Overview:
Shown here is a 187-nucleotide RNA sequence from Jeotgalibaca dankookensis, a member of the family "Enterococcus sRNA 2410". Rfam classes the family as a small RNA. Pairs were carried over by alignment from the consensus structure, which was predicted with RNAfold.
RNA sequence: UUAGCUUCUUUAGAUAGUGUUUGUAAUCAUCGCUGAUGGGUACAAGCACAACAAACAGUGUUUGUAUCUAUGAGGCUAGAGUUAGUUUGCGCGAGCAAUUGCCACAUAGAUGAAAAUCUGAGUGGUAAUUGCGGAAAGUAUUUAUUUCUUUCUUCAAUUGAAGUUAGACCCCAUUCAGAUGGAUAAA
Numbered sequence: 001u002u003a004g005c006u007u008c009u010u011u012a013g014a015u016a017g018u019g020u021u022u023g024u025a026a027u028c029a030u031c032g033c034u035g036a037u038g039g040g041u042a043c044a045a046g047c048a049c050a051a052c053a054a055a056c057a058g059u060g061u062u063u064g065u066a067u068c069u070a071u072g073a074g075g076c077u078a079g080a081g082u083u084a085g086u087u088u089g090c091g092c093g094a095g096c097a098a099u100u101g102c103c104a105c106a107u108a109g110a111u112g113a114a115a116a117u118c119u120g121a122g123u124g125g126u127a128a129u130u131g132c133g134g135a136a137a138g139u140a141u142u143u144a145u146u147u148c149u150u151u152c153u154u155c156a157a158u159u160g161a162a163g164u165u166a167g168a169c170c171c172c173a174u175u176c177a178g179a180u181g182g183a184u185a186a187a
Base pairs, nucleotide, nucleotide: 001079002078003077004076005075006074011070012069013068014067015066016065019047020046021045022044023043024042025041027039028038029037030036050063051062052060053059084146085145086144089141091139092138096133100127101126102125103124104123105122107120108119109118148163149162150161
A reference for the family is Sinel et al. (2017), "Small RNAs in vancomycin-resistant Enterococcus faecium involved in daptomycin response and resistance", Sci Rep. It scores 73 bits against the family's covariance model. Rfam's curators write: Produced as 2 transcripts on Northern blot. Expressed in mid, late exponential and early stationary phases of growth.